The record is a 134-nucleotide RNA sequence from Atractosteus spatula, which matches "U12 minor spliceosomal RNA" in Rfam.
RNA sequence: AGGAAAAUAACGACCCGGGGUGACGCCCGAGUCCUCGCCACGACAAGCGAGAGUAAUUUUUGAACGGGUACAGGUCGGAGCUGCCAGGUGACCUGCCUACUUUGCGGGAUGCCGGCGGUGACGUGAUCUGCCCG
Numbered sequence: 001a002g003g004a005a006a007a008u009a010a011c012g013a014c015c016c017g018g019g020g021u022g023a024c025g026c027c028c029g030a031g032u033c034c035u036c037g038c039c040a041c042g043a044c045a046a047g048c049g050a051g052a053g054u055a056a057u058u059u060u061u062g063a064a065c066g067g068g069u070a071c072a073g074g075u076c077g078g079a080g081c082u083g084c085c086a087g088g089u090g091a092c093c094u095g096c097c098u099a100c101u102u103u104g105c106g107g108g109a110u111g112c113c114g115g116c117g118g119u120g121a122c123g124u125g126a127u128c129u130g131c132c133c134g
Base pairs, nucleotide, nucleotide: 012033013032014031016029017028018027019026034051035050036049037048038047065134066133067132068131069130072129073128074127075126076125077124081118082117087113088112089111090110092108093107094106095105096104
Pairs were carried over by alignment from the consensus structure. It scores 92 bits against the family's covariance model.